[Rfam]
RNA: Xanthine riboswitch aptamer (NMT1 RNA)
Organism: Pseudooceanicola algae
RNA sequence: CCCUGGAGUAGAAGCAGGCAGUGCCCCCCGGCACAGGUCAUUGCUCCCCCA
Numbered sequence: 001c002c003c004u005g006g007a008g009u010a011g012a013a014g015c016a017g018g019c020a021g022u023g024c025c026c027c028c029c030g031g032c033a034c035a036g037g038u039c040a041u042u043g044c045u046c047c048c049c050c051a
Stems, first nucleotide, its partner, number of pairs: 005047006015036001018038002021034005